Rfam assigns this 79-nucleotide RNA from Phoenix dactylifera to the family "Small nucleolar RNA Z155".
Rfam classes the family as a C/D-box small nucleolar RNA.
NCBI's taxonomy places the organism under Eukaryota, Spermatophyta, Arecaceae, Phoeniceae, Phoenix.
Rfam 15.1 lists 429 matches to the family in 196 species.
RNA sequence: CGUUGAUAUGAUGAUAACAUCUUGCAGAAAAGAAGAAGUGUUGACUAAAAAAAAUCAGAUCACAAUUAUCUGAUCAACG
Numbered sequence: 001c002g003u004u005g006a007u008a009u010g011a012u013g014a015u016a017a018c019a020u021c022u023u024g025c026a027g028a029a030a031a032g033a034a035g036a037a038g039u040g041u042u043g044a045c046u047a048a049a050a051a052a053a054a055u056c057a058g059a060u061c062a063c064a065a066u067u068a069u070c071u072g073a074u075c076a077a078c079g
Stems, first nucleotide, its partner, number of pairs: 001079006